About this RNA: The family of this 104-nucleotide RNA sequence from Odoribacter sp. CAG:788 is "SAM riboswitch aptamer (S box leader)". Its family is annotated with regulation of gene expression in the Gene Ontology. The base pairs follow the family's consensus structure, which is taken from published work.
RNA sequence: GAAUUAUAAAGAGGAGUUGAGAGACGGGCUCUAUGAAACUCCGACAACCUCAGAACUUUCUGAAAGGUGCCAAAACCCGUCCUGAAAAUCAGGAAUUAUAAUUU
Numbered sequence: 001g002a003a004u005u006a007u008a009a010a011g012a013g014g015a016g017u018u019g020a021g022a023g024a025c026g027g028g029c030u031c032u033a034u035g036a037a038a039c040u041c042c043g044a045c046a047a048c049c050u051c052a053g054a055a056c057u058u059u060c061u062g063a064a065a066g067g068u069g070c071c072a073a074a075a076c077c078c079g080u081c082c083u084g085a086a087a088a089u090c091a092g093g094a095a096u097u098a099u100a101a102u103u104u
Stems, first nucleotide, its partner, number of pairs: 001104008013042005021031003025079004043071001045069002048067002050063004075096001081093005